[Rfam]
RNA sequence: UGUGUGUGUGUGUGUGUUUCUUUAACUUGUGGACAAAGCCUUUCAGAUAGAUGCAAAAACCAAAUUCUCUUUUGCAAUCAGAACUCAUCGUUCAGUAUGAGCUUUGAUACACUUAAGAAGGAAUAUG
Number, nucleotide and partner (000 for none) at each position: 001u055002g054003u053004g052005u051006g000007u049008g048009u047010g000011u045012g000013u000014g040015u000016g000017u037018u036019u035020c000021u033022u000023u000024a000025a000026c031027u000028u000029g000030u000031g026032g000033a021034c000035a019036a018037a017038g000039c000040c014041u000042u000043u000044c000045a011046g000047a009048u008049a007050g000051a005052u004053g003054c002055a001056a000057a000058a000059a000060c000061c000062a000063a000064a124065u123066u122067c121068u120069c000070u118071u117072u116073u115074g114075c000076a000077a000078u000079c106080a105081g104082a103083a000084c101085u100086c099087a098088u097089c000090g000091u000092u000093c000094a000095g000096u000097a088098u087099g086100a085101g084102c000103u082104u081105u080106g079107a000108u000109a000110c000111a000112c000113u000114u074115a073116a072117g071118a070119a000120g068121g067122a066123a065124u064125a000126u000127g000